[Rfam]
RNA sequence: UCCUGAGGGCAUGUUUCAUCACGAUGUUGGGAAAGCUCACGCCCUUGAGGCGCGCGGUGCGGAUGUAUUGCGCCGUCAUCACCUCGGCCAUCGAGGCGCGGGUCAUGCGGGCGAUGUAGCCCAUGCCGUAGAGCGCGAUGGUCAGCACCGGCAGGAAGAAGUUUUCGAAUGUCGCAUUG
Numbered sequence: 001u002c003c004u005g006a007g008g009g010c011a012u013g014u015u016u017c018a019u020c021a022c023g024a025u026g027u028u029g030g031g032a033a034a035g036c037u038c039a040c041g042c043c044c045u046u047g048a049g050g051c052g053c054g055c056g057g058u059g060c061g062g063a064u065g066u067a068u069u070g071c072g073c074c075g076u077c078a079u080c081a082c083c084u085c086g087g088c089c090a091u092c093g094a095g096g097c098g099c100g101g102g103u104c105a106u107g108c109g110g111g112c113g114a115u116g117u118a119g120c121c122c123a124u125g126c127c128g129u130a131g132a133g134c135g136c137g138a139u140g141g142u143c144a145g146c147a148c149c150g151g152c153a154g155g156a157a158g159a160a161g162u163u164u165u166c167g168a169a170u171g172u173c174g175c176a177u178u179g
Base pairs, nucleotide, nucleotide: 004141006139009136010135012133014131015130016128020125021124028123029122030121031120038113040111042109046105047104048103051100052099053098054097055075056074057073058072059071060070061069062068082096083095084094085093086092146179147178149174150173151172152171153170154165155164156163157162